Description
Rfam assigns this 71-nucleotide sequence from Faecalibacterium sp. CAG:1138 to the family "tRNA". Rfam classes the family as a transfer RNA. NCBI's taxonomy places the organism under Bacteria, Bacillati, Clostridia, Eubacteriales, Faecalibacterium. Pairs were carried over by alignment from the consensus structure, which is taken from published work. A search with the family's covariance model found it, with a score of 51 bits.

RNA sequence: UGGGGUAUGGUGUAAAGGUAGCACAAAGGCCUCUGACUCCUUCGGUGUUGGUUCGAUUCCGACUAUCCCUG
Numbered sequence: 001u002g003g004g005g006u007a008u009g010g011u012g013u014a015a016a017g018g019u020a021g022c023a024c025a026a027a028g029g030c031c032u033c034u035g036a037c038u039c040c041u042u043c044g045g046u047g048u049u050g051g052u053u054c055g056a057u058u059c060c061g062a063c064u065a066u067c068c069c070u071g
Base pairs, nucleotide, nucleotide: 002069003068004067005066006065007064010024011023012022013021026042027041028040029039047063048062049061050060051059
Dot-bracket structure: .((((((..((((.......)))).((((.........))))....(((((.......)))))))))))..